[Rfam]
Rfam assigns this 166-nucleotide RNA sequence from Thalassobacillus cyri to the family "c-di-AMP riboswitch aptamer (ydaO/yuaA leader)".
RNA sequence: UUAAUAACAUCGCUUAACUUUCUAUAUAAGGAAGGUGGGGGACCCGUUUUUUGUAGCAAUGACCAGCUACUAGGGGUGAAUCUGACGAAAUAUUGUUUCGUUGGUAGGGUAACUCUUUAUACCCGAAUCCGACAGCUAACCUCAUAAGCGUAUAAAGGGAAGAAUG
Numbered sequence: 001u002u003a004a005u006a007a008c009a010u011c012g013c014u015u016a017a018c019u020u021u022c023u024a025u026a027u028a029a030g031g032a033a034g035g036u037g038g039g040g041g042a043c044c045c046g047u048u049u050u051u052u053g054u055a056g057c058a059a060u061g062a063c064c065a066g067c068u069a070c071u072a073g074g075g076g077u078g079a080a081u082c083u084g085a086c087g088a089a090a091u092a093u094u095g096u097u098u099c100g101u102u103g104g105u106a107g108g109g110u111a112a113c114u115c116u117u118u119a120u121a122c123c124c125g126a127a128u129c130c131g132a133c134a135g136c137u138a139a140c141c142u143c144a145u146a147a148g149c150g151u152a153u154a155a156a157g158g159g160a161a162g163a164a165u166g
Base pairs, nucleotide, nucleotide: 011150012149013148014147018034019033020032021031022030023029035145036144037143038142039141040140045073074130075129076128082104083103084102085101086100087099088098089097090096091095107124108123109122110121